[Rfam]
RNA sequence: GAUUCUCUAUGUUUGCUAACUUCCACGUGGUGAGAAUUAGGCAACGUUUAUUGAUAAACGGCAAAAAGCCAAC
Numbered sequence: 001g002a003u004u005c006u007c008u009a010u011g012u013u014u015g016c017u018a019a020c021u022u023c024c025a026c027g028u029g030g031u032g033a034g035a036a037u038u039a040g041g042c043a044a045c046g047u048u049u050a051u052u053g054a055u056a057a058a059c060g061g062c063a064a065a066a067a068g069c070c071a072a073c
Base pairs, nucleotide, nucleotide: 001038002037003036004035005034006033007032019031020030021029045060046059047058048057049056